[Rfam]
RNA sequence: CCCGUCGAGGGGCGCUGCGACCCACGCAAGGUGGGCCAGGCUCGACGGGGUUUUCCCAAAUCCGUUGUAACGGCGCCCGUUCCUG
Numbered sequence: 001c002c003c004g005u006c007g008a009g010g011g012g013c014g015c016u017g018c019g020a021c022c023c024a025c026g027c028a029a030g031g032u033g034g035g036c037c038a039g040g041c042u043c044g045a046c047g048g049g050g051u052u053u054u055c056c057c058a059a060a061u062c063c064g065u066u067g068u069a070a071c072g073g074c075g076c077c078c079g080u081u082c083c084u085g
Stems, first nucleotide, its partner, number of pairs: 002048007021035005
The family of this 85-nucleotide sequence from Stenotrophobium rhamnosiphilum is "SAH (S-adenosyl-L-homocysteine) riboswitch aptamer". Pairs were carried over by alignment from the consensus structure, which is taken from published work. A reference for the family is Wang et al. (2008), "Riboswitches that sense S-adenosylhomocysteine and activate genes involved in coenzyme recycling", Mol Cell. NCBI's taxonomy places the organism under Bacteria, Pseudomonadati, Nevskiales, Nevskiaceae, Stenotrophobium.